RNA sequence: UAAUCGAUCCGGGCCCCUCUGGCGAUCCGGCGUGGGCCAUGACAGCCCCGCCAUCGCGAUGUCGGAUCGACUUC
Numbered sequence: 001u002a003a004u005c006g007a008u009c010c011g012g013g014c015c016c017c018u019c020u021g022g023c024g025a026u027c028c029g030g031c032g033u034g035g036g037c038c039a040u041g042a043c044a045g046c047c048c049c050g051c052c053a054u055c056g057c058g059a060u061g062u063c064g065g066a067u068c069g070a071c072u073u074c
Stems, first nucleotide, its partner, number of pairs: 006068007022057005029052003
This 74-nucleotide sequence from Teichococcus cervicalis belongs to the Rfam family "terC RNA". The family's RNA type in Rfam is cis-regulatory element. The family's consensus secondary structure is taken from published work.